[Rfam]
A member of the RNA family "Small nucleolar RNA R38" from Paraphoma chrysanthemicola, 83 nucleotides long. About the family: snoR38 is a C/D box small nucleolar RNA conserved across yeast, human, Arabidopsis and rice. It is encoded in the intron of elongation factor-1 gamma in both pombe and cerevisiae. snoR38 guides the methylation of 2'-O-ribose sites in 28S rRNA.
RNA sequence: CUGUAAUGGGAUGAGAUAUUUUUAUCAUUCAGUUAUCCCUGUCUGAAAACUACUGUUGAGAACUUCUAUACUCUGAUUUACAC
Numbered sequence: 001c002u003g004u005a006a007u008g009g010g011a012u013g014a015g016a017u018a019u020u021u022u023u024a025u026c027a028u029u030c031a032g033u034u035a036u037c038c039c040u041g042u043c044u045g046a047a048a049a050c051u052a053c054u055g056u057u058g059a060g061a062a063c064u065u066c067u068a069u070a071c072u073c074u075g076a077u078u079u080a081c082a083c
Stems, first nucleotide, its partner, number of pairs: 002082005
Gene Ontology terms of the family: nucleolus and RNA processing. Rfam classes the family as a C/D-box small nucleolar RNA. On this family, see Bachellerie et al., Trends Biochem Sci 1995: "Antisense snoRNAs: a family of nucleolar RNAs with long complementarities to rRNA".